[Rfam]
RNA sequence: AAUAAAGAUAGAGGCGCAAGAUGUUAUGAGAUUAUUAUUAUUUGAUGCAACAAGGUAAUGAAGGAGGAGCACUUGCCGAAAGAUUGUAUCUAUUGCAUGAGGUAUAAUCUUGGGUGUCUAGGGAAGACCUAUUCAACUGUCAUUAUCUAAAGGUAAUGGGGAGCUAUCAUUGAU
Dot-bracket structure: ......(((((....(((((..(((......((((((((..............))))))))......))).)))))...((((((((((((........))))))))))))((.((..((((.....))))..)).)).(((((((......)))))))....)))))......
The record is a 174-nucleotide RNA sequence from Faecalibacillus faecis, which matches "Lysine riboswitch aptamer" in Rfam.